[Rfam]
RNA: Guanidine-II riboswitch aptamer (mini-ykkC)
Organism: bacterium YEK0313
RNA sequence: GGCGCAGGACGACCUGCGCCGACACCGCAUCGGGGACGGCCCC
Numbered sequence: 001g002g003c004g005c006a007g008g009a010c011g012a013c014c015u016g017c018g019c020c021g022a023c024a025c026c027g028c029a030u031c032g033g034g035g036a037c038g039g040c041c042c043c
Stems, first nucleotide, its partner, number of pairs: 001020008032043004